[Rfam]
RNA sequence: AUUAAAAAAAAAGCGCCUGGACUAACCUAAUGUGGUGGGUUAGUUGACGAGGAGGAGGAGUAUCGAAUGUUCGGCGGAUACCUCCCGGUUGAAGACGCACAACCGAAAAAUUUCUUCUUUAAAACACAGAGGCAACUUUGUGCACAAAGAGAAGAAAAUGCGCAUAC
Number, nucleotide and partner (000 for none) at each position: 001a000002u000003u000004a000005a000006a000007a000008a000009a000010a000011a000012a000013g000014c000015g000016c000017c000018u000019g000020g045021a044022c043023u042024a041025a040026c039027c038028u000029a036030a000031u000032g000033u000034g000035g000036u029037g000038g027039g026040u025041u024042a023043g022044u021045u020046g000047a000048c000049g000050a000051g000052g000053a000054g085055g084056a083057g082058g081059a000060g000061u000062a000063u074064c073065g072066a071067a000068u000069g000070u000071u066072c065073g064074g063075c000076g000077g000078a000079u000080a000081c058082c057083u056084c055085c054086c105087g104088g103089u102090u101091g100092a000093a000094g000095a000096c000097g000098c000099a000100c091101a090102a089103c088104c087105g086106a000107a000108a000109a000110a000111u157112u156113u155114c154115u153116u152117c151118u000119u000120u000121a000122a000123a000124a000125c142126a141127c140128a139129g138130a137131g136132g000133c000134a000135a000136c131137u130138u129139u128140g127141u126142g125143c000144a000145c000146a000147a000148a000149g000150a000151g117152a116153a115154g114155a113156a112157a111158a000159u000160g000161c000162g000163c000164a000165u000166a000167c000
The record is a 167-nucleotide RNA sequence, which matches "glmS glucosamine-6-phosphate activated ribozyme aptamer" in Rfam. By type it is a riboswitch. The match comes from Rfam's covariance-model search (134 bits). Pairs were carried over by alignment from the consensus structure, which is taken from published work.